[Rfam]
RNA sequence: GAGCUGGGGGGACGCCCUGUGGCGCUUCCCCUGGAUCGGAAGAACAGAGGAAAGCGACCAGUCGAGAUAUCGUUUCAGUCGCCAUUUCUCCCAAUGGGCGAUUCGAUUGUUGCUCGACGACAU
Dot-bracket structure: ((.((((((((...............)))))))).)).......................(.((((..((((.....((((((..((.....))..)))))).)))).....)))).).....

Rfam assigns this 123-nucleotide RNA sequence from Colocasia esculenta to the family "Small nucleolar RNA snoR111". By type it is an H/ACA-box small nucleolar RNA. A search with the family's covariance model found it, with a score of 66 bits. For this family Rfam cites "Experimental RNomics: identification of 140 candidates for small non-messenger RNAs in the plant Arabidopsis thaliana" (Marker et al., Curr Biol, 2002). Rfam 15.1 lists 533 matches to the family in 223 species. The base pairs follow the family's consensus structure, which was predicted with WAR.